[Rfam]
RNA: MAT2A 3'UTR stem loop F
RNA sequence: CCCGGGCGCGGCGCCCGUGGCCGGUGUGGUACAGAGAAGCCGGCUUGUUUACUGCCCGCCCGGG
Numbered sequence: 001c002c003c004g005g006g007c008g009c010g011g012c013g014c015c016c017g018u019g020g021c022c023g024g025u026g027u028g029g030u031a032c033a034g035a036g037a038a039g040c041c042g043g044c045u046u047g048u049u050u051a052c053u054g055c056c057c058g059c060c061c062g063g064g
Stems, first nucleotide, its partner, number of pairs: 001064007010056003016047001019045007026032002